This 61-nucleotide sequence from Pristionchus pacificus belongs to the Rfam family "mir-8364 microRNA precursor family".
The match comes from Rfam's covariance-model search (73 bits).
[Rfam]
RNA sequence: UCUUCAUUUCACACACUCUCUCGCCGGUCAGAGAAACGAGAGAAUGCGUGAAAUGAAGAGA
Numbered sequence: 001u002c003u004u005c006a007u008u009u010c011a012c013a014c015a016c017u018c019u020c021u022c023g024c025c026g027g028u029c030a031g032a033g034a035a036a037c038g039a040g041a042g043a044a045u046g047c048g049u050g051a052a053a054u055g056a057a058g059a060g061a
Base pairs, nucleotide, nucleotide: 001059002058003057004056005055006054007053010050012048014046015045017043019041020040021039022038